[Rfam]
RNA sequence: CAGCCGGUGCAAGUCCGGUCCGGGGAGACGCCAGGGUCCCCGGUAGCUGACUCCCGGCGUCGCUCGAAAGGGUGGCGUCGAAGUGGAGUGACAAGCGCCCUUUGGGGGCGUGCAACCGGCCAGUCCGCAACAUGA
Numbered sequence: 001c002a003g004c005c006g007g008u009g010c011a012a013g014u015c016c017g018g019u020c021c022g023g024g025g026a027g028a029c030g031c032c033a034g035g036g037u038c039c040c041c042g043g044u045a046g047c048u049g050a051c052u053c054c055c056g057g058c059g060u061c062g063c064u065c066g067a068a069a070g071g072g073u074g075g076c077g078u079c080g081a082a083g084u085g086g087a088g089u090g091a092c093a094a095g096c097g098c099c100c101u102u103u104g105g106g107g108g109c110g111u112g113c114a115a116c117c118g119g120c121c122a123g124u125c126c127g128c129a130a131c132a133u134g135a
Stems, first nucleotide, its partner, number of pairs: 020043005050089005055080006064071002096110005112128002
Shown here is a 135-nucleotide RNA from Streptomyces capitiformicae, a member of the family "Group II catalytic intron D1-D4-4". Pairs were carried over by alignment from the consensus structure. The literature on the family includes a 2001 paper in Trends Genet by Bonen and Vogel, "The ins and outs of group II introns". About the family: Group II introns are found in rRNA, tRNA and mRNA of organelles in fungi, plants and protists, and also in mRNA in bacteria.